The record is a 136-nucleotide sequence from Rattus norvegicus, which matches "Small Cajal body specific RNA 3" in Rfam. Rfam classes the family as a small Cajal body RNA. About the family: scaRNAs are a specific class of small nuclear RNAs which localise to the Cajal bodies and guide the modification of RNA polymerase II transcribed spliceosomal RNAs U1, U2, U4, U5 and U12. It is one of the family's seed sequences.
[Rfam]
RNA sequence: UACGGAAGCUGUAGAACCAGCCAUGAAGACAAGUGAGAAACCACCUUCUGUCUACAGAAGGCAACAAUCCUGAAUAAACCUGGAAAUCUUUGUCUGACUUCAGACAGCUGAGUCUAAUCGUUGCCUUCCUUACAAC
Numbered sequence: 001u002a003c004g005g006a007a008g009c010u011g012u013a014g015a016a017c018c019a020g021c022c023a024u025g026a027a028g029a030c031a032a033g034u035g036a037g038a039a040a041c042c043a044c045c046u047u048c049u050g051u052c053u054a055c056a057g058a059a060g061g062c063a064a065c066a067a068u069c070c071u072g073a074a075u076a077a078a079c080c081u082g083g084a085a086a087u088c089u090u091u092g093u094c095u096g097a098c099u100u101c102a103g104a105c106a107g108c109u110g111a112g113u114c115u116a117a118u119c120g121u122u123g124c125c126u127u128c129c130u131u132a133c134a135a136c
Base pairs, nucleotide, nucleotide: 004070005069006068008065010063011062012061024056025055027053028052029051030050035047036046037045082129083128084127085126090120092118093117096114097113098112